A member of the RNA family "Bacterial large signal recognition particle RNA" from Thermodesulfitimonas autotrophica, 264 nucleotides long. Lineage of the source: Bacteria > Bacillati > Bacillota > Thermoanaerobacterales > Thermodesulfitimonas. The family is grouped with related families in Rfam's "SRP clan". On this family, see Regalia et al., Nucleic Acids Res 2002: "Prediction of signal recognition particle RNA genes".
[Rfam]
RNA sequence: CCGUGCUAAACGGGGAGGUAGCGGUGCCCUGUACCCGCAAGCCGCUAUAGCGGGGUUGAAUUCCUGCCCCCGGGCCCGGCUUGUGGUAGCGGCCCCCGUAAGGAGUGAGGACGGUUGGGUCUCGCGCGACGGAGCUUCCUGAACCGUGUCAGGUCCUGGCGGAAGCAGCACUAAGGGAAAUCCUCCGGGUGCCGUGAGGGUGCCUGGCCCGAGCUACCUGCGGCGGGUACAACCGGAAGCUGCGGCUCAAAGGCAGGUGCACGG
Numbered sequence: 001c002c003g004u005g006c007u008a009a010a011c012g013g014g015g016a017g018g019u020a021g022c023g024g025u026g027c028c029c030u031g032u033a034c035c036c037g038c039a040a041g042c043c044g045c046u047a048u049a050g051c052g053g054g055g056u057u058g059a060a061u062u063c064c065u066g067c068c069c070c071c072g073g074g075c076c077c078g079g080c081u082u083g084u085g086g087u088a089g090c091g092g093c094c095c096c097c098g099u100a101a102g103g104a105g106u107g108a109g110g111a112c113g114g115u116u117g118g119g120u121c122u123c124g125c126g127c128g129a130c131g132g133a134g135c136u137u138c139c140u141g142a143a144c145c146g147u148g149u150c151a152g153g154u155c156c157u158g159g160c161g162g163a164a165g166c167a168g169c170a171c172u173a174a175g176g177g178a179a180a181u182c183c184u185c186c187g188g189g190u191g192c193c194g195u196g197a198g199g200g201u202g203c204c205u206g207g208c209c210c211g212a213g214c215u216a217c218c219u220g221c222g223g224c225g226g227g228u229a230c231a232a233c234c235g236g237a238a239g240c241u242g243c244g245g246c247u248c249a250a251a252g253g254c255a256g257g258u259g260c261a262c263g264g
Base pairs, nucleotide, nucleotide: 001264002263003262004261005260006259009057010056011055012030013029014028015027017025019023034054035053036052037051038050063257064256065255066254067253068252072248073247074246075245076244078241079240080239081238082237084235085234086233087232092230094225096223097222098221099220102218103217104215105214106213113209114208115207116206117205118204119203120202121198122197123196124195125194126193127189130187131186132185133184134183136179137178138177139176140175146171147170148169149168154163155162156161